[Rfam]
RNA sequence: GGUGGAACCGACCCACCAAUGUCGUUUUAUAGGAGAAGGCGUUAAACCACCUAAAGGUGCUGUUGUAAAGAGCGAUGGUACUGAGCGUUUAGGAAACGGCUAGUCAAGAACUGGUCAGGU
Numbered sequence: 001g002g003u004g005g006a007a008c009c010g011a012c013c014c015a016c017c018a019a020u021g022u023c024g025u026u027u028u029a030u031a032g033g034a035g036a037a038g039g040c041g042u043u044a045a046a047c048c049a050c051c052u053a054a055a056g057g058u059g060c061u062g063u064u065g066u067a068a069a070g071a072g073c074g075a076u077g078g079u080a081c082u083g084a085g086c087g088u089u090u091a092g093g094a095a096a097c098g099g100c101u102a103g104u105c106a107a108g109a110a111c112u113g114g115u116c117a118g119g120u
Base pairs, nucleotide, nucleotide: 001017002016003015004014005013018043019042020041021040022039023038025036026035027034028033048119050093051092052091053090054089055088056082057081059079060078061077063075064074065073066072098116099115100114101113102112103111
Shown here is a 120-nucleotide sequence, a member of the family "Group II catalytic intron D1-D4-2".
The pairing is the family consensus, mapped onto this sequence.
Rfam's curators put it in the seed alignment.
On this family, see Bonen and Vogel, Trends Genet 2001: "The ins and outs of group II introns".
Gene Ontology term of the family: Group II intron splicing.
About the family: Group II introns are found in rRNA, tRNA and mRNA of organelles in fungi, plants and protists, and also in mRNA in bacteria.